[Rfam]
Shown here is a 122-nucleotide RNA from Povalibacter uvarum, a member of the family "t44 RNA".
Taxonomically the source falls in Povalibacter (Bacteria, Pseudomonadati, Pseudomonadota, Steroidobacterales).
A search with the family's covariance model found it, with a score of 61 bits.
A reference for the family is Tjaden et al. (2002), "Transcriptome analysis of Escherichia coli using high-density oligonucleotide probe arrays", Nucleic Acids Res.
This family consists of a number of bacterial RNA genes of between 135 and 170 bases in length.
RNA sequence: AAUCGUCCUUAACCAUCUCUCACACUGGCCGUCACGUGCGGCGGGGUGCCUGGGAAAACCGCACAGGGCUCGUCCCUGAACGGAUUCUUCAGGUCGCCGUAUGGGACCAGUGGAGGCUCAAC
Numbered sequence: 001a002a003u004c005g006u007c008c009u010u011a012a013c014c015a016u017c018u019c020u021c022a023c024a025c026u027g028g029c030c031g032u033c034a035c036g037u038g039c040g041g042c043g044g045g046g047u048g049c050c051u052g053g054g055a056a057a058a059c060c061g062c063a064c065a066g067g068g069c070u071c072g073u074c075c076c077u078g079a080a081c082g083g084a085u086u087c088u089u090c091a092g093g094u095c096g097c098c099g100u101a102u103g104g105g106a107c108c109a110g111u112g113g114a115g116g117c118u119c120a121a122c
Stems, first nucleotide, its partner, number of pairs: 023112006030105001035103009048094007